[Rfam]
RNA sequence: GCGUCGUCGAGAUAUGUUUGAUAUUCUUGGUUGUUUGUUUUGGAUCACCCGGGAAUCAAACAUAUUACUCUACGACCG
Numbered sequence: 001g002c003g004u005c006g007u008c009g010a011g012a013u014a015u016g017u018u019u020g021a022u023a024u025u026c027u028u029g030g031u032u033g034u035u036u037g038u039u040u041u042g043g044a045u046c047a048c049c050c051g052g053g054a055a056u057c058a059a060a061c062a063u064a065u066u067a068c069u070c071u072a073c074g075a076c077c078g
Stems, first nucleotide, its partner, number of pairs: 005074003009070001011066012024053002029050002032047002
Shown here is a 78-nucleotide RNA sequence from Bombyx mori, a member of the family "mir-190 microRNA precursor family".
NCBI's taxonomy places the organism under Eukaryota, Ecdysozoa, Aparaglossata, Ditrysia, Bombyx.
Rfam links the family to the GO terms RISC complex and miRNA-mediated post-transcriptional gene silencing.
It scores 58 bits against the family's covariance model.
On this family, see Kloosterman et al., Nucleic Acids Res 2006: "Cloning and expression of new microRNAs from zebrafish".
Pairs were carried over by alignment from the consensus structure, which was predicted with RNAalifold.